Source information
The record is a 46-nucleotide sequence from Bifidobacterium asteroides, which matches "L31-Actinobacteria ribosomal protein leader" in Rfam. The source organism's lineage runs through Bacteria, Bacillati, Actinomycetes, Bifidobacteriales and Bifidobacterium. Pairs were carried over by alignment from the consensus structure, which is taken from published work. A reference for the family is Eckert and Weinberg (2020), "Discovery of 20 novel ribosomal leader candidates in bacteria and archaea", BMC Microbiol. The sequence is in the family's curated seed alignment. By type it is a cis-regulatory leader.
[Rfam]
RNA sequence: GCGGUUACCGGUUCACGUCCGCCACAGGGGCGGUCGACCCGGGGCC
Numbered sequence: 001g002c003g004g005u006u007a008c009c010g011g012u013u014c015a016c017g018u019c020c021g022c023c024a025c026a027g028g029g030g031c032g033g034u035c036g037a038c039c040c041g042g043g044g045c046c
Stems, first nucleotide, its partner, number of pairs: 003046002006044001008042004016036002019033005